This 58-nucleotide RNA from Compostimonas suwonensis belongs to the Rfam family "msiK RNA". The source organism's lineage runs through Bacteria, Bacillati, Actinomycetes, Micrococcales and Compostimonas. The family's consensus secondary structure is taken from published work.
[Rfam]
RNA sequence: CACCAAUUCCAUUCACAACGGAUCGUCCGGCACGUACCUGCCGGUGAAGGAGAAGAAC
Numbered sequence: 001c002a003c004c005a006a007u008u009c010c011a012u013u014c015a016c017a018a019c020g021g022a023u024c025g026u027c028c029g030g031c032a033c034g035u036a037c038c039u040g041c042c043g044g045u046g047a048a049g050g051a052g053a054a055g056a057a058c
Base pairs, nucleotide, nucleotide: 009050010049012048013047014046015045027044028043029042030041031040032039